[Rfam]
RNA sequence: CAUGGCACAAUGAGGAAUAUAUAUUAUUAACAAUCUGGAAGAUUCUUUGAAUCUUUGAUUGACAUAUUAUUAGUCCUUUUCAUUCUGAGUGCCCA
Numbered sequence: 001c002a003u004g005g006c007a008c009a010a011u012g013a014g015g016a017a018u019a020u021a022u023a024u025u026a027u028u029a030a031c032a033a034u035c036u037g038g039a040a041g042a043u044u045c046u047u048u049g050a051a052u053c054u055u056u057g058a059u060u061g062a063c064a065u066a067u068u069a070u071u072a073g074u075c076c077u078u079u080u081c082a083u084u085c086u087g088a089g090u091g092c093c094c095a
Stems, first nucleotide, its partner, number of pairs: 004093005010083005042052003
RNA: Small nucleolar RNA Z162